[Rfam]
RNA sequence: UAAAGUAUUAAAGCGCCAGAACUUGAGUCUAGGCUUAAGUUGACGAGGUUGGGGAGUAUCGAGAUUUUCGGCGGAUGCCCCACGGUAGCACACUACCGUUAAACAUUGAUAAAACCGCAAAGUGAUUUGUGGCACAAAAUCAAUGGGGUGUGAUUC
Dot-bracket structure: ...................((((((((......))))))))........(((((....((((.....))))......)))))((((((....)))))).....(((((......(((((((....)))))))........)))))...........
Rfam assigns this 156-nucleotide RNA sequence from Clostridium sp. N3C to the family "glmS glucosamine-6-phosphate activated ribozyme aptamer". Taxonomically the source falls in Clostridium (Bacteria, Bacillati, Bacillota, Clostridiaceae). The base pairs follow the family's consensus structure, which is taken from published work. From the family's description: This entry contains a glucosamine-6-phosphate activated ribozyme that is found in the mRNA for GlmS. GlmS is an enzyme that uses fructose-6-phosphate and glutamine to generate glucosamine-6-phosphate.